[Rfam]
RNA sequence: UCCCGGGGACGACCCGGAGAGUCUGCUUUUUACUUGCGGGGACGACUCCG
Number, nucleotide and partner (000 for none) at each position: 001u020002c019003c000004c017005g000006g015007g014008g013009a000010c000011g000012a000013c008014c007015c006016g000017g004018a000019g002020a001021g000022u000023c000024u000025g000026c000027u000028u000029u000030u000031u000032a000033c000034u000035u000036g000037c050038g049039g048040g047041g046042a000043c000044g000045a000046c041047u040048c039049c038050g037